[Rfam]
RNA sequence: CCGGCUCCGGUCACGUCGCCCAACGCUGGGUGACGACCCGGUGCC
Numbered sequence: 001c002c003g004g005c006u007c008c009g010g011u012c013a014c015g016u017c018g019c020c021c022a023a024c025g026c027u028g029g030g031u032g033a034c035g036a037c038c039c040g041g042u043g044c045c
Stems, first nucleotide, its partner, number of pairs: 003045003007041004014035009
L31-Actinobacteria ribosomal protein leader: a 45-nucleotide RNA from Auraticoccus cholistanensis. The base pairs follow the family's consensus structure, which is taken from published work. Rfam classes the family as a cis-regulatory leader.